[Rfam]
RNA sequence: GUUUGCAUUAUCGGGCGAGUCUUCCUUGGCAGUGUUCGAAUCUGCAGUGCUGCAACAUUAAAUCGAUCACUGCCAAAGGAGAUUUGCCCAGCGAUGCAAUU
Numbered sequence: 001g002u003u004u005g006c007a008u009u010a011u012c013g014g015g016c017g018a019g020u021c022u023u024c025c026u027u028g029g030c031a032g033u034g035u036u037c038g039a040a041u042c043u044g045c046a047g048u049g050c051u052g053c054a055a056c057a058u059u060a061a062a063u064c065g066a067u068c069a070c071u072g073c074c075a076a077a078g079g080a081g082a083u084u085u086g087c088c089c090a091g092c093g094a095u096g097c098a099a100u101u
Base pairs, nucleotide, nucleotide: 005097006096007095008094009093011091013089014088015087016086017085018084019083021081022080023079024078027075028074029073030072031071032070033069034068
Shown here is a 101-nucleotide sequence from Leersia perrieri, a member of the family "mir-399 microRNA precursor family".
Gene Ontology terms of the family: RISC complex and miRNA-mediated post-transcriptional gene silencing.
Rfam 15.1 lists 2,396 matches to the family in 221 species.
mir-399 was identified in both Arabidopsis thaliana and Oryza sativa computationally and was later experimentally verified. mir-399 is thought to target mRNAs coding for a phosphatase transporter. The mature sequence is excised from the 3' arm of the hairpin.
The organism belongs to Leersia, within Eukaryota.